[Rfam]
RNA sequence: AGCACUGUAUUUAAAUAUAUGGAUGGAAAUUUCUCCUAUUCUAGGCUAUGCUGUAGUGCAAGAAUUCUGGCUCAUUGUUGCACCGCUGACUUGUGCCAUUUUGCUGUUACUUAAUAGAGUUAAGGAGCAUUG
Numbered sequence: 001a002g003c004a005c006u007g008u009a010u011u012u013a014a015a016u017a018u019a020u021g022g023a024u025g026g027a028a029a030u031u032u033c034u035c036c037u038a039u040u041c042u043a044g045g046c047u048a049u050g051c052u053g054u055a056g057u058g059c060a061a062g063a064a065u066u067c068u069g070g071c072u073c074a075u076u077g078u079u080g081c082a083c084c085g086c087u088g089a090c091u092u093g094u095g096c097c098a099u100u101u102u103g104c105u106g107u108u109a110c111u112u113a114a115u116a117g118a119g120u121u122a123a124g125g126a127g128c129a130u131u132g
Base pairs, nucleotide, nucleotide: 002059003058004057005056006055007054008053009052014047016045021041022040023039024038025037026036065126066125067124068123069121070120071119072118073117076114080110082108083106085104086103088101089100

Small nucleolar RNA SNORA46: a 132-nucleotide RNA sequence from Cricetulus griseus. Taxonomically the source falls in Cricetulus (Eukaryota, Metazoa, Vertebrata, Dipnotetrapodomorpha). Pairs were carried over by alignment from the consensus structure, which was predicted with RNAfold. ACA46 is a member of the H/ACA class of snoRNA that guide the sites of modification of uridines to pseudouridines.